[Rfam]
RNA sequence: AUAUGAAUACGUAUAUGACUUCAUAUAUCCUCGAUAAUAUGGUUCGAGAGUCUCUACCGGAUUGCCGUUAACAAUCUGACUAUGAAGGCAGUGUCUUACUAU
Numbered sequence: 001a002u003a004u005g006a007a008u009a010c011g012u013a014u015a016u017g018a019c020u021u022c023a024u025a026u027a028u029c030c031u032c033g034a035u036a037a038u039a040u041g042g043u044u045c046g047a048g049a050g051u052c053u054c055u056a057c058c059g060g061a062u063u064g065c066c067g068u069u070a071a072c073a074a075u076c077u078g079a080c081u082a083u084g085a086a087g088g089c090a091g092u093g094u095c096u097u098a099c100u101a102u
Base pairs, nucleotide, nucleotide: 019087020086021085022084023083024082025081030048031047032046033045034044058078059077060076061075062074063073064072

The family of this 102-nucleotide sequence from Sutcliffiella cohnii is "Purine riboswitch aptamer".
Riboswitches are metabolite binding domains within certain messenger RNAs that serve as precision sensors for their corresponding targets.
For this family Rfam cites "Riboswitches Control Fundamental Biochemical Pathways in Bacillus subtilis and Other Bacteria" (Mandal et al., Cell, 2003).
Pairs were carried over by alignment from the consensus structure, which is taken from published work.
NCBI's taxonomy places the organism under Bacteria, Bacillota, Bacilli, Bacillaceae, Sutcliffiella.